[Rfam]
RNA sequence: GUGAUCCUCAGAAUGGAAGCUCUUCCUGUAGUCUUAGCUGGAAAGUGCUUCCAUUUUGGGUGUCAC
Number, nucleotide and partner (000 for none) at each position: 001g000002u000003g000004a063005u062006c000007c060008u059009c058010a057011g056012a055013a054014u053015g052016g051017a050018a049019g048020c047021u000022c045023u044024u042025c041026c040027u000028g000029u000030a000031g000032u000033c000034u000035u000036a000037g000038c000039u000040g026041g025042a024043a000044a023045g022046u000047g020048c019049u018050u017051c016052c015053a014054u013055u012056u011057u010058g009059g008060g007061u000062g005063u004064c000065a000066c000

This 66-nucleotide RNA from Chrysochloris asiatica belongs to the Rfam family "mir-290 microRNA precursor family". The organism belongs to Chrysochloris, within Eukaryota. The match comes from Rfam's covariance-model search (56 bits). The family has 31 seed sequences and 565 matches in Rfam 15.1. The family's consensus secondary structure was predicted with RNAalifold.